Record summary: Rfam assigns this 241-nucleotide sequence from Sulfobacillus thermosulfidooxidans to the family "HNH endonuclease-associated RNA and ORF (HEARO) RNA". For this family Rfam cites "Exceptional structured noncoding RNAs revealed by bacterial metagenome analysis" (Weinberg et al., Nature, 2009). The family's consensus secondary structure is taken from published work. Rfam classes the family as a non-coding RNA gene.

RNA sequence: GUCAACCACCCCGGUCUGAAGCCCGAAGCUCGUUUCCAUCAGCUUCCGUCUCCGACAACGGUUGACCAGCCCUAGCCGCCGGGAUCUCGGGAGCGAGCGGCUCCGUUCGAAACGUCACGACACCUUGGAGUGCUUCUCCAGCUCCAGGCUCUGUCGUCCGUAGUUAAACGCCAGCUCGGGGUAGUGCGAGCCGUGCUGCGGGCAAGACAAGCGUUUUGAACAUGGGCGAGGAGAGACCCUC
Numbered sequence: 001g002u003c004a005a006c007c008a009c010c011c012c013g014g015u016c017u018g019a020a021g022c023c024c025g026a027a028g029c030u031c032g033u034u035u036c037c038a039u040c041a042g043c044u045u046c047c048g049u050c051u052c053c054g055a056c057a058a059c060g061g062u063u064g065a066c067c068a069g070c071c072c073u074a075g076c077c078g079c080c081g082g083g084a085u086c087u088c089g090g091g092a093g094c095g096a097g098c099g100g101c102u103c104c105g106u107u108c109g110a111a112a113c114g115u116c117a118c119g120a121c122a123c124c125u126u127g128g129a130g131u132g133c134u135u136c137u138c139c140a141g142c143u144c145c146a147g148g149c150u151c152u153g154u155c156g157u158c159c160g161u162a163g164u165u166a167a168a169c170g171c172c173a174g175c176u177c178g179g180g181g182u183a184g185u186g187c188g189a190g191c192c193g194u195g196c197u198g199c200g201g202g203c204a205a206g207a208c209a210a211g212c213g214u215u216u217u218g219a220a221c222a223u224g225g226g227c228g229a230g231g232a233g234a235g236a237c238c239c240u241c
Base pairs, nucleotide, nucleotide: 001066002065003064004063005062006061007060010028012025013024016021030055031054032053069227070226071225072224074102075101076100077099078098105221106220107219108218109217110216111215112214113213114212115211120154121153124148125147126146127145128144129143130142131141132237134235135234136233137232138231139230156203157202158201159200160199161198162197163196164195168194169193174191175190176189177188178187180185
NCBI's taxonomy places the organism under Bacteria, Bacillati, Eubacteriales, Sulfobacillus, Sulfobacillus thermosulfidooxidans.